Rfam assigns this 76-nucleotide sequence from Acanthisitta chloris to the family "Small nucleolar RNA SNORD19". The source organism's lineage runs through Eukaryota, Vertebrata, Gnathostomata, Tetrapoda and Acanthisitta. For this family Rfam cites "RNomics: an experimental approach that identifies 201 candidates for novel, small, non-messenger RNAs in mouse" (Huttenhofer et al., EMBO J, 2001). By type it is a C/D-box small nucleolar RNA.
[Rfam]
RNA sequence: GAGCUAUGAAGAAGAUUUUAAAGGAAUCUGAGAUUCCAUUGAAGACAUAAGAUCCAACUCUGAGCUCAAUAAAACG
Dot-bracket structure: ((((...........................................................)))).........